About this RNA
The record is a 112-nucleotide RNA sequence from Candidatus Brocadia sinica, which matches "c-di-GMP-I-GGC riboswitch aptamer" in Rfam. It scores 63 bits against the family's covariance model. The literature on the family includes a 2017 paper in Proc Natl Acad Sci U S A by Weinberg et al., "Bioinformatic analysis of riboswitch structures uncovers variant classes with altered ligand specificity".
[Rfam]
Nucleotides: 112
Base pairs, nucleotide, nucleotide: 001112003109004108011036012035016031017030018029019028020027021026034098039105040104041103042102044101045100046099048095049094050093051092052091053090
Number, partner (000 for none) and nucleotide at each position: 001112c002000c003109c004108g005000a006000a007000a008000a009000a010000g011036g012035c013000a014000a015000a016031c017030c018029c019028u020027g021026a022000g023000u024000g025000a026021u027020c028019a029018g030017g031016g032000g033000g034098c035012g036011c037000a038000a039105a040104g041103u042102a043000a044101a045100g046099g047000a048095u049094c050093u051092c052091g053090u054000c055000a056000g057000c058000c059000a060000u061000u062000u063000a064000a065000g066000c067000a068000g069000u070000u071000u072000a073000a074000a075000c076000a077000a078000u079000u080000u081000a082000a083000a084000c085000c086000g087000c088000u089000c090053a091052u092051g093050a094049g095048a096000c097000a098034g099046c100045c101044u102042u103041a104040c105039u106000g107000c108004c109003g110000a111000a112001g